The record is a 94-nucleotide RNA from Anseranas semipalmata, which matches "Small nucleolar SNORD12/SNORD106" in Rfam. A reference for the family is Huttenhofer et al. (2001), "RNomics: an experimental approach that identifies 201 candidates for novel, small, non-messenger RNAs in mouse", EMBO J. By type it is a C/D-box small nucleolar RNA. NCBI's taxonomy places the organism under Eukaryota, Sarcopterygii, Archelosauria, Aves, Anseranas. Rfam links the family to the GO terms RNA processing and nucleolus.
[Rfam]
RNA sequence: UCUGUGGUAUAUGAUGACUUCAAACUUUUUUCCCCAUCAGAUCGGCAAUGCUGAUACAAACUUAUAUUUUAGCCAGGUUGUCUGAUUCCACAGA
Numbered sequence: 001u002c003u004g005u006g007g008u009a010u011a012u013g014a015u016g017a018c019u020u021c022a023a024a025c026u027u028u029u030u031u032c033c034c035c036a037u038c039a040g041a042u043c044g045g046c047a048a049u050g051c052u053g054a055u056a057c058a059a060a061c062u063u064a065u066a067u068u069u070u071a072g073c074c075a076g077g078u079u080g081u082c083u084g085a086u087u088c089c090a091c092a093g094a
Base pairs, nucleotide, nucleotide: 001094002093003092004091005090006089007088009086